A member of the RNA family "NiCo-AnGGAG riboswitch aptamer", 88 nucleotides long.
RNA sequence: AAUCUGAGCAAGCGGUGAAUAGGUGACUAUUCAUGCAGCCCGGCUACUAAACGUAGCAGCAGAGUGUUAAGGUACAUCUGUGAGACAG
Numbered sequence: 001a002a003u004c005u006g007a008g009c010a011a012g013c014g015g016u017g018a019a020u021a022g023g024u025g026a027c028u029a030u031u032c033a034u035g036c037a038g039c040c041c042g043g044c045u046a047c048u049a050a051a052c053g054u055a056g057c058a059g060c061a062g063a064g065u066g067u068u069a070a071g072g073u074a075c076a077u078c079u080g081u082g083a084g085a086c087a088g
Stems, first nucleotide, its partner, number of pairs: 004088003012039002014036001015034007043057005059081005065076003
Clan: NiCo_riboswitches. Rfam's curators write: Nico riboswitches are selective metalloregulatory riboswitches that recognice Ni2+ and Co2+ metals. The literature on the family includes a 2017 paper in Proc Natl Acad Sci U S A by Weinberg et al., "Bioinformatic analysis of riboswitch structures uncovers variant classes with altered ligand specificity".